RNA: Small nucleolar RNA Z107/R87
RNA sequence: GGUCACGGUGACGACUCCAUAAUAUUCAAGCUCAACAGACCGGAUUGCAGGCUUCUCUAUUUUUAGAGUUGUUUGCGUGUCGAGUACCCCGCUGAACUGAGUGACU
Number, nucleotide and partner (000 for none) at each position: 001g106002g105003u104004c103005a102006c101007g000008g000009u000010g000011a000012c000013g000014a000015c000016u000017c000018c000019a000020u000021a000022a000023u000024a000025u000026u000027c000028a000029a000030g000031c000032u000033c000034a000035a000036c000037a000038g000039a000040c000041c000042g000043g000044a000045u000046u000047g000048c000049a000050g000051g000052c000053u000054u000055c000056u000057c000058u000059a000060u000061u000062u000063u000064u000065a000066g000067a000068g000069u000070u000071g000072u000073u000074u000075g000076c000077g000078u000079g000080u000081c000082g000083a000084g000085u000086a000087c000088c000089c000090c000091g000092c000093u000094g000095a000096a000097c000098u000099g000100a000101g006102u005103g004104a003105c002106u001